Background:
The family of this 396-nucleotide RNA from Mangrovactinospora gilvigrisea is "Bacterial RNase P class A". Pairs were carried over by alignment from the consensus structure, which is taken from published work. Rfam's curators write: Ribonuclease P (RNase P) is a ubiquitous endoribonuclease, found in archaea, bacteria and eukarya as well as chloroplasts and mitochondria.
RNA sequence: CGAGCCGGCCGGGCGGCCGCGUGGGGGUGCAUGCACCUCCCCGAGGAACGUCCGGGCUCCACAGGGCAGGGUGGUGGGCAACGCCCACCCGGGGUGACCCGCGGGACAGUGCCACAGAAAACAGACCGCCCCGAAAGGGGUAAGGGUGAAACGGUGGUGUAAGAGACCACCAGCGCUCAGGGCGACCUGGGCGGCUAGGUAAACCCCACCCGGAGCAAGGUCAAGAAGGAGCGGUCGGGAGACCGCUUCGCGCGGACGAUCGAGGGCUGCCCGCCCGAUGCCCGCGGGUAGACCGCUUGAGGCCGCCGGCAACGACGGCCCUAGAUGGAUGGCCGCCUCCCCGAGGCCCGCAAGGACCCCGGGAGACAGAACCCGGCGUACAGGCCGACUCGUCCG
Numbered sequence: 001c002g003a004g005c006c007g008g009c010c011g012g013g014c015g016g017c018c019g020c021g022u023g024g025g026g027g028u029g030c031a032u033g034c035a036c037c038u039c040c041c042c043g044a045g046g047a048a049c050g051u052c053c054g055g056g057c058u059c060c061a062c063a064g065g066g067c068a069g070g071g072u073g074g075u076g077g078g079c080a081a082c083g084c085c086c087a088c089c090c091g092g093g094g095u096g097a098c099c100c101g102c103g104g105g106a107c108a109g110u111g112c113c114a115c116a117g118a119a120a121a122c123a124g125a126c127c128g129c130c131c132c133g134a135a136a137g138g139g140g141u142a143a144g145g146g147u148g149a150a151a152c153g154g155u156g157g158u159g160u161a162a163g164a165g166a167c168c169a170c171c172a173g174c175g176c177u178c179a180g181g182g183c184g185a186c187c188u189g190g191g192c193g194g195c196u197a198g199g200u201a202a203a204c205c206c207c208a209c210c211c212g213g214a215g216c217a218a219g220g221u222c223a224a225g226a227a228g229g230a231g232c233g234g235u236c237g238g239g240a241g242a243c244c245g246c247u248u249c250g251c252g253c254g255g256a257c258g259a260u261c262g263a264g265g266g267c268u269g270c271c272c273g274c275c276c277g278a279u280g281c282c283c284g285c286g287g288g289u290a291g292a293c294c295g296c297u298u299g300a301g302g303c304c305g306c307c308g309g310c311a312a313c314g315a316c317g318g319c320c321c322u323a324g325a326u327g328g329a330u331g332g333c334c335g336c337c338u339c340c341c342c343g344a345g346g347c348c349c350g351c352a353a354g355g356a357c358c359c360c361g362g363g364a365g366a367c368a369g370a371a372c373c374c375g376g377c378g379u380a381c382a383g384g385c386c387g388a389c390u391c392g393u394c395c396g
Stems, first nucleotide, its partner, number of pairs: 001392004006387005011381001012337007020043002023040006048379003052376005057215004064272004069211005074088005089103001090101004104206002109204002111200003126145002128141005153171006173195001174193008219294004229285001231283001233281001264276004301320005307314002